[Rfam]
RNA: UnaL2 LINE 3' element
Organism: Carassius auratus
RNA sequence: AACUGCAUGGACUGUAAGUCACUUUGGAUAAAAGCGUCUGCUAAAUGCAUGAAU
Numbered sequence: 001a002a003c004u005g006c007a008u009g010g011a012c013u014g015u016a017a018g019u020c021a022c023u024u025u026g027g028a029u030a031a032a033a034g035c036g037u038c039u040g041c042u043a044a045a046u047g048c049a050u051g052a053a054u
Base pairs, nucleotide, nucleotide: 013043014041015040016039020036022034023033024032025031